[Rfam]
RNA sequence: GUAAUGUUUCUUGCUCAAAUGAGUAUUCCAGAAACAGUAGCAUUAGUCUAUCCGCGUAUUAAUAUCAGUUAAUUUGCUGCUGGUUUUCUGAGAUGCUCAUUUGAGCAAGCAAUGUUAU
Numbered sequence: 001g002u003a004a005u006g007u008u009u010c011u012u013g014c015u016c017a018a019a020u021g022a023g024u025a026u027u028c029c030a031g032a033a034a035c036a037g038u039a040g041c042a043u044u045a046g047u048c049u050a051u052c053c054g055c056g057u058a059u060u061a062a063u064a065u066c067a068g069u070u071a072a073u074u075u076g077c078u079g080c081u082g083g084u085u086u087u088c089u090g091a092g093a094u095g096c097u098c099a100u101u102u103g104a105g106c107a108a109g110c111a112a113u114g115u116u117a118u
Base pairs, nucleotide, nucleotide: 004115005114006113007112008111010109011108012107013106014105015104016103017102018101019100020099021098022097023096024095025094026093027092029090030089
About this RNA
MIR828 microRNA precursor family: a 118-nucleotide RNA from Morus notabilis. The family has 16 seed sequences and 204 matches in Rfam 15.1. The literature on the family includes a 2006 paper in Genes Dev by Rajagopalan et al., "A diverse and evolutionarily fluid set of microRNAs in Arabidopsis thaliana".